[Rfam]
RNA sequence: GUCGGCUACGGAGACAUGUACCCCGUGACGAUUGGGGGGAAGAUCGUGGGCUCGCUGUGUGCCAUCGCCGGCGUGCUGACAAUCGCGCUGCCCGUGCCCGUCAUCGUGUCCAAC
Numbered sequence: 001g002u003c004g005g006c007u008a009c010g011g012a013g014a015c016a017u018g019u020a021c022c023c024c025g026u027g028a029c030g031a032u033u034g035g036g037g038g039g040a041a042g043a044u045c046g047u048g049g050g051c052u053c054g055c056u057g058u059g060u061g062c063c064a065u066c067g068c069c070g071g072c073g074u075g076c077u078g079a080c081a082a083u084c085g086c087g088c089u090g091c092c093c094g095u096g097c098c099c100g101u102c103a104u105c106g107u108g109u110c111c112a113a114c
Base pairs, nucleotide, nucleotide: 001114002113004111005110007108008107009106010105011104013102014101015100018097019096020095021094037077038076040074049063050062051061
Shown here is a 114-nucleotide sequence from Sander lucioperca, a member of the family "Potassium channel RNA editing signal". This family represents a group of sequences related to the human potassium channel Kv1.1 hairpin element which directs the efficient modification of an adenosine to inosine by an adenosine deaminase acting on RNA (ADAR). The ADAR modification causes an isoleucine/valine recoding event which lies in the ion-conducting pore of the potassium channel. It is thought that this editing event targets the process of fast inactivation and allows a more rapid recovery from inactivation at negative potentials. Gene Ontology term of the family: adenosine to inosine editing. A search with the family's covariance model found it, with a score of 113 bits. The family's consensus secondary structure is taken from published work.